Shown here is a 70-nucleotide sequence from Smithornis capensis, a member of the family "Small nucleolar RNA SNORD63". By type it is a C/D-box small nucleolar RNA. The family has 23 seed sequences and 795 matches in Rfam 15.1. NCBI's taxonomy places the organism under Eukaryota, Metazoa, Euteleostomi, Sauropsida, Smithornis. Rfam describes the family as follows. snoRNA U63 is found in both humans and mice.

RNA sequence: GUGCCAUGAUGUGAACUGUCAACACAUCAUUCUGAAGGAGGGUUGUGUGGAGACUGUGAGACUGAGCACC
Numbered sequence: 001g002u003g004c005c006a007u008g009a010u011g012u013g014a015a016c017u018g019u020c021a022a023c024a025c026a027u028c029a030u031u032c033u034g035a036a037g038g039a040g041g042g043u044u045g046u047g048u049g050g051a052g053a054c055u056g057u058g059a060g061a062c063u064g065a066g067c068a069c070c
Base pairs, nucleotide, nucleotide: 001069002068003067004066